RNA sequence: UGUAGAAUGAUGAAAAAAAUCGGACGGAUUCCCAAUGAUAACAUUCAUUCGUGUCUGUAUGAUAUUAAACCAGCUACUUCUGACUACA
Numbered sequence: 001u002g003u004a005g006a007a008u009g010a011u012g013a014a015a016a017a018a019a020u021c022g023g024a025c026g027g028a029u030u031c032c033c034a035a036u037g038a039u040a041a042c043a044u045u046c047a048u049u050c051g052u053g054u055c056u057g058u059a060u061g062a063u064a065u066u067a068a069a070c071c072a073g074c075u076a077c078u079u080c081u082g083a084c085u086a087c088a
Stems, first nucleotide, its partner, number of pairs: 001088005